mir-21 microRNA precursor family: a 71-nucleotide RNA from Salarias fasciatus.
Nucleotides: 071
Stems, first nucleotide, its partner, number of pairs: 008064008018055005024049005030043001
Number, partner (000 for none) and nucleotide at each position: 001000u002000g003000u004000c005000a006000g007000c008064u009063a010062g011061c012060u013059u014058a015057u016000c017000a018055g019054a020053c021052u022051g023000g024049u025048g026047u027046u028045g029000g030043c031000u032000g033000u034000u035000c036000a037000g038000c039000g040000u041000g042000a043030g044000g045028c046027a047026g048025c049024a050000g051022c052021g053020g054019u055018c056000u057015g058014u059013a060012a061011g062010c063009u064008g065000g066000c067000u068000g069000a070000a071000g
A search with the family's covariance model found it, with a score of 68 bits. Taxonomically the source falls in Salarias (Eukaryota, Opisthokonta, Neoteleostei, Salariinae).